Metazoan signal recognition particle RNA: a 299-nucleotide RNA sequence from Cynoglossus semilaevis. Lineage of the source: Eukaryota > Actinopteri > Euteleosteomorpha > Pleuronectiformes > Cynoglossus. Pairs were carried over by alignment from the consensus structure, which is taken from published work. Rfam classes the family as a non-coding RNA gene. Its Rfam clan is "SRP clan".

[Rfam]
RNA sequence: GCCGGGAGCAGUGGCUCGCUCCUAUAAUCCAAGCUGCUGGGAGGCUGAGGCUGGCGGAUGGUUUGAGCUCAGGGGUUCUGAGCUGCAGCGGACUGUGUCGAGCGGGUGUCCGCACUAAGUUCGGUAUCGAUAUGGUUCUCCUGGGGGAGCUCGGGAGAUCCAGGUCGUCUAAGGAGGGGUGUACCGGCCCAGGUCGGCAACGAAGCAGGUCAAAGCCCCCGUGCCGCUCAGUAGUGGGAUCGCGCCCGUGAAUAGACGAUGUAGUUCUGCCUGAGUAAUACAAUCAGACCCAGUCUUUU
Numbered sequence: 001g002c003c004g005g006g007a008g009c010a011g012u013g014g015c016u017c018g019c020u021c022c023u024a025u026a027a028u029c030c031a032a033g034c035u036g037c038u039g040g041g042a043g044g045c046u047g048a049g050g051c052u053g054g055c056g057g058a059u060g061g062u063u064u065g066a067g068c069u070c071a072g073g074g075g076u077u078c079u080g081a082g083c084u085g086c087a088g089c090g091g092a093c094u095g096u097g098u099c100g101a102g103c104g105g106g107u108g109u110c111c112g113c114a115c116u117a118a119g120u121u122c123g124g125u126a127u128c129g130a131u132a133u134g135g136u137u138c139u140c141c142u143g144g145g146g147g148a149g150c151u152c153g154g155g156a157g158a159u160c161c162a163g164g165u166c167g168u169c170u171a172a173g174g175a176g177g178g179g180u181g182u183a184c185c186g187g188c189c190c191a192g193g194u195c196g197g198c199a200a201c202g203a204a205g206c207a208g209g210u211c212a213a214a215g216c217c218c219c220c221g222u223g224c225c226g227c228u229c230a231g232u233a234g235u236g237g238g239a240u241c242g243c244g245c246c247c248g249u250g251a252a253u254a255g256a257c258g259a260u261g262u263a264g265u266u267c268u269g270c271c272u273g274a275g276u277a278a279u280a281c282a283a284u285c286a287g288a289c290c291c292a293g294u295c296u297u298u299u
Stems, first nucleotide, its partner, number of pairs: 001045003004023006011016001028042003047297008059286005067276007078269001080267008089258002093255004098250001102249008110238002113236005119229001122226006128167004133162003137158009168174002176219005186211004194203003